[Rfam]
RNA sequence: AUUACCUAAAACAAUGAAAGCCCUACCUCUCUUUCAUCCUUACGACUCCUCGGUCGCGCCAGUGUGAAUUAAAGUAAAGAAGGCUAA
Number, nucleotide and partner (000 for none) at each position: 001a000002u000003u000004a000005c000006c000007u000008a000009a000010a000011a000012c000013a000014a000015u000016g000017a000018a000019a000020g000021c000022c000023c000024u000025a000026c000027c000028u000029c000030u000031c000032u000033u000034u067035c066036a065037u000038c000039c062040u061041u058042a000043c056044g055045a054046c053047u052048c000049c000050u000051c000052g047053g046054u045055c044056g043057c000058g041059c000060c000061a040062g039063u000064g000065u036066g035067a034068a000069u000070u000071a000072a000073a000074g000075u000076a000077a000078a000079g000080a000081a000082g000083g000084c000085u000086a000087a000
Rfam assigns this 87-nucleotide sequence from Alkalihalobacillus trypoxylicola to the family "BsrC". By type it is a small RNA. The base pairs follow the family's consensus structure, which was predicted with CMfinder. From the family's description: The 301 nucleotide sequence from Kouji Nakamura has been trimmed to a highly conserved ~85 nucleotide long core to form this family. The match comes from Rfam's covariance-model search (90 bits). The organism belongs to Alkalihalobacillus, within Bacteria.